[Rfam]
RNA sequence: CCUUUGGAGAACUAUAUAAACAAGAGUAAUAAUUAUAAAUUAUGAAAUUGGGUUCGUUGAAUAAGGAA
Numbered sequence: 001c002c003u004u005u006g007g008a009g010a011a012c013u014a015u016a017u018a019a020a021c022a023a024g025a026g027u028a029a030u031a032a033u034u035a036u037a038a039a040u041u042a043u044g045a046a047a048u049u050g051g052g053u054u055c056g057u058u059g060a061a062u063a064a065g066g067a068a
Stems, first nucleotide, its partner, number of pairs: 001066004009055005021050003029043003034039001
A member of the RNA family "RAGATH-18 RNA", 68 nucleotides long. It is one of the family's seed sequences. Actinobacteria, Firmicutes, Fusobacteria, Thermotogae (1 example). It is annotated as a small RNA. The family's consensus secondary structure is taken from published work.